[Rfam]
RNA sequence: AAAACUUAGGUAUAAUUCUUUGGGUGCUUUUCGUAUGGUUCUUAACUAAAAAUACAUAUUUUUUGGAUAUAACAAAACUUUGAGAAAAUUAUGAAUUUGAGGAAAUCAUCGUGAAUUUAGUUAAUAACCAUACGAAAAGCAUCUAAGAAAUUGUACCUAAGUUUU
Numbered sequence: 001a002a003a004a005c006u007u008a009g010g011u012a013u014a015a016u017u018c019u020u021u022g023g024g025u026g027c028u029u030u031u032c033g034u035a036u037g038g039u040u041c042u043u044a045a046c047u048a049a050a051a052a053u054a055c056a057u058a059u060u061u062u063u064u065g066g067a068u069a070u071a072a073c074a075a076a077a078c079u080u081u082g083a084g085a086a087a088a089u090u091a092u093g094a095a096u097u098u099g100a101g102g103a104a105a106u107c108a109u110c111g112u113g114a115a116u117u118u119a120g121u122u123a124a125u126a127a128c129c130a131u132a133c134g135a136a137a138a139g140c141a142u143c144u145a146a147g148a149a150a151u152u153g154u155a156c157c158u159a160a161g162u163u164u165u
Stems, first nucleotide, its partner, number of pairs: 002164007010156004015151003019147007027139014042124002045121006